Rfam assigns this 82-nucleotide RNA from Panagrolaimus superbus to the family "SmY spliceosomal RNA". The base pairs follow the family's consensus structure, which is taken from published work. The match comes from Rfam's covariance-model search (47 bits).

RNA sequence: UGCAAAAAAUAUUCUUUAACAGGGUCUCUUUUGAGUCCCCAAGUACAAUUUUUGGAUGGUCUUUUGGGUUUCCAAAUGACUU
Numbered sequence: 001u002g003c004a005a006a007a008a009a010u011a012u013u014c015u016u017u018a019a020c021a022g023g024g025u026c027u028c029u030u031u032u033g034a035g036u037c038c039c040c041a042a043g044u045a046c047a048a049u050u051u052u053u054g055g056a057u058g059g060u061c062u063u064u065u066g067g068g069u070u071u072c073c074a075a076a077u078g079a080c081u082u
Base pairs, nucleotide, nucleotide: 022039023038024037026035027034028033058081059080060079061078063076064075065074066073